The family of this 92-nucleotide sequence from Streptomyces sp. NRRL WC-3618 is "sodF sRNA". For this family Rfam cites "Inverse regulation of Fe- and Ni-containing SOD genes by a Fur family regulator Nur through small RNA processed from 3'UTR of the sodF mRNA" (Kim et al., Nucleic Acids Res, 2014). By type it is a small RNA. Taxonomically the source falls in Streptomyces (Bacteria, Bacillati, Actinomycetota, Streptomycetaceae). Its family is annotated with mRNA binding, regulation of mRNA stability and negative regulation of translation in the Gene Ontology.
RNA sequence: GCGUCCUGCCUCGUGAUCGUCUUCUCACCGGACACGAGGGCAGGCGGAACGACGGGCGGCCCCCGCGAGGACAUGACUCGCGGGGGCCGCCC
Dot-bracket structure: .((.(((((((.(((...(.........)...)))..))))))))).......((((((((((((((((.......))))))))))))))))
Numbered sequence: 001g002c003g004u005c006c007u008g009c010c011u012c013g014u015g016a017u018c019g020u021c022u023u024c025u026c027a028c029c030g031g032a033c034a035c036g037a038g039g040g041c042a043g044g045c046g047g048a049a050c051g052a053c054g055g056g057c058g059g060c061c062c063c064c065g066c067g068a069g070g071a072c073a074u075g076a077c078u079c080g081c082g083g084g085g086g087c088c089g090c091c092c
Stems, first nucleotide, its partner, number of pairs: 002046002005044007013035003019029001054092016